RNA sequence: GGCACUUGUGUAUGUUUUUGUUAUGGACAAAGACUUACAGAUAGGUGAGAAAAAUAAAUCCUGUUUGCAACCCAGAACUCAUUAUUUAAUAUGAGUUUGACACAAAGAAGAAGGAAUAUU
Numbered sequence: 001g002g003c004a005c006u007u008g009u010g011u012a013u014g015u016u017u018u019u020g021u022u023a024u025g026g027a028c029a030a031a032g033a034c035u036u037a038c039a040g041a042u043a044g045g046u047g048a049g050a051a052a053a054a055u056a057a058a059u060c061c062u063g064u065u066u067g068c069a070a071c072c073c074a075g076a077a078c079u080c081a082u083u084a085u086u087u088a089a090u091a092u093g094a095g096u097u098u099g100a101c102a103c104a105a106a107g108a109a110g111a112a113g114g115a116a117u118a119u120u
Base pairs, nucleotide, nucleotide: 003047004046005045006044007043008042009041011039014034015033016032017031018030019029020028021027058117059116061114062113064110065109066108073099074098076097077096078095079094080093081092082091
Background:
The record is a 120-nucleotide sequence from Castor canadensis, which matches "Small nucleolar RNA SNORA40" in Rfam. The family's consensus secondary structure was predicted with RNAalifold. A search with the family's covariance model found it, with a score of 89 bits. The snoRNA ACA 40 belongs to the H/ACA family of snoRNAs and guides the pseudouridylation of 28S rRNA subunit at position U4565. NB This family has a high threshold value to exclude a large number of closely related sequences that do not appear to have conserved H and ACA boxes, and may be pseudogenes. Rfam classes the family as an H/ACA-box small nucleolar RNA.